[Rfam]
RNA sequence: GUCUUCUCAUUGAGCUCCUUUCUGUCGCUCUGUGGCAGUUUAUGGAUUCGCACCAGAAGAAGAGACAAUUCACAGAGCUAUCAUUAUUUUGCCUCCUGUCUUCCGAGGUGUAUUCUGCUGUUUUGUGAGACAUUC
Numbered sequence: 001g002u003c004u005u006c007u008c009a010u011u012g013a014g015c016u017c018c019u020u021u022c023u024g025u026c027g028c029u030c031u032g033u034g035g036c037a038g039u040u041u042a043u044g045g046a047u048u049c050g051c052a053c054c055a056g057a058a059g060a061a062g063a064g065a066c067a068a069u070u071c072a073c074a075g076a077g078c079u080a081u082c083a084u085u086a087u088u089u090u091g092c093c094u095c096c097u098g099u100c101u102u103c104c105g106a107g108g109u110g111u112a113u114u115c116u117g118c119u120g121u122u123u124u125g126u127g128a129g130a131c132a133u134u135c
Base pairs, nucleotide, nucleotide: 003059004058005057006056007055014051015050016046017045018044022038023037024036025035026034070128071127072126073125074124075123092108093107094106095105
Dot-bracket structure: ..(((((......(((((...(((((.......))))).....)))...))...)))))..........((((((................((((.........))))..............)))))).......
This 135-nucleotide RNA sequence from Myotis lucifugus belongs to the Rfam family "Small nucleolar RNA SNORA75". The family has 6 seed sequences and 414 matches in Rfam 15.1. U23 belongs to the H/ACA class of snoRNAs. snoRNAs bind a number of proteins (including dyskerin, Gar1p and Nop10p in the case of the H/ACA class) to form snoRNP complexes. This class are thought to guide the sites of modification of uridines to pseudouridines by forming direct base pairing interactions with substrate RNAs. The literature on the family includes a 1997 paper in Genes Dev by Ganot et al., "The family of box ACA small nucleolar RNAs is defined by an evolutionarily conserved secondary structure and ubiquitous sequence elements essential for RNA accumulation". Pairs were carried over by alignment from the consensus structure, which was predicted with PFOLD.